[Rfam]
This 67-nucleotide RNA sequence from Loxodonta africana belongs to the Rfam family "Small nucleolar RNA SNORD109A". The family has 7 seed sequences and 412 matches in Rfam 15.1.
RNA sequence: GGAUCGAGGAUGUGCAUAACUGUCUGAGGAUGCCGAGGGACUAGUUGCAGGUAUCAAUCUGAAGUCC
Dot-bracket structure: ((((...........................................................))))
From the family's description: Humans have two copies of the SNORD109 gene, SNORD109A and SNORD109B. The family is grouped with related families in Rfam's "SNORD74 clan".